[Rfam]
The record is a 65-nucleotide RNA, which matches "DUF805 RNA" in Rfam. Rfam classes the family as a cis-regulatory element. The sequence is in the family's curated seed alignment. The family has 46 seed sequences and 281 matches in Rfam 15.1.
RNA sequence: GGGCAAUGGAGCAGAUACCAUUUGAAAAACGGGCGAGUUCGAAAAGCCAGAGGAGUAGAGGAAAU
Numbered sequence: 001g002g003g004c005a006a007u008g009g010a011g012c013a014g015a016u017a018c019c020a021u022u023u024g025a026a027a028a029a030c031g032g033g034c035g036a037g038u039u040c041g042a043a044a045a046g047c048c049a050g051a052g053g054a055g056u057a058g059a060g061g062a063a064a065u
Base pairs, nucleotide, nucleotide: 006021007020008019009018032048033047034046039059040058
Dot-bracket structure: .....((((........))))..........(((....[[.....))).........]]......